[Rfam]
RNA: Small nucleolar RNA SNORA12
RNA sequence: AAUUGUGGUGGUUUUCUUUCUGGCUCAUUUGUUAAGUUUUCAAAUGGGCCUAACUCUGCCACAUAUAUUAUAUGGGAGCUGGCAAAGGUUUGAUGACAAAAAGAUUACUCUCUAGCCUUUCCCAUAUCAAAGAUAGGCUCCCACAUAU
Numbered sequence: 001a002a003u004u005g006u007g008g009u010g011g012u013u014u015u016c017u018u019u020c021u022g023g024c025u026c027a028u029u030u031g032u033u034a035a036g037u038u039u040u041c042a043a044a045u046g047g048g049c050c051u052a053a054c055u056c057u058g059c060c061a062c063a064u065a066u067a068u069u070a071u072a073u074g075g076g077a078g079c080u081g082g083c084a085a086a087g088g089u090u091u092g093a094u095g096a097c098a099a100a101a102a103g104a105u106u107a108c109u110c111u112c113u114a115g116c117c118u119u120u121c122c123c124a125u126a127u128c129a130a131a132g133a134u135a136g137g138c139u140c141c142c143a144c145a146u147a148u
Base pairs, nucleotide, nucleotide: 005062006061007060008059009058010057011056022050023049024048026046027045028044029043030042031041075141076140077139078138079137080136081090082089083088108132109131111129